A member of the RNA family "mir-148/mir-152 microRNA precursor family" from Cricetulus griseus, 72 nucleotides long. The organism belongs to Cricetulus, within Eukaryota. A reference for the family is Lagos-Quintana et al. (2002), "Identification of tissue-specific microRNAs from mouse", Curr Biol. It is one of the family's seed sequences.
[Rfam]
RNA sequence: UUGAGGUGAAGUUCUGUUAUACACUCAGGCUGUGGCUCUGAAAGUCAGUGCAUCACAGAACUUUGUCUCGAA
Numbered sequence: 001u002u003g004a005g006g007u008g009a010a011g012u013u014c015u016g017u018u019a020u021a022c023a024c025u026c027a028g029g030c031u032g033u034g035g036c037u038c039u040g041a042a043a044g045u046c047a048g049u050g051c052a053u054c055a056c057a058g059a060a061c062u063u064u065g066u067c068u069c070g071a072a
Base pairs, nucleotide, nucleotide: 004068005067006066007065008064009063010062011061012060013059014058015057016056022050023049024048025047028046029045030044031043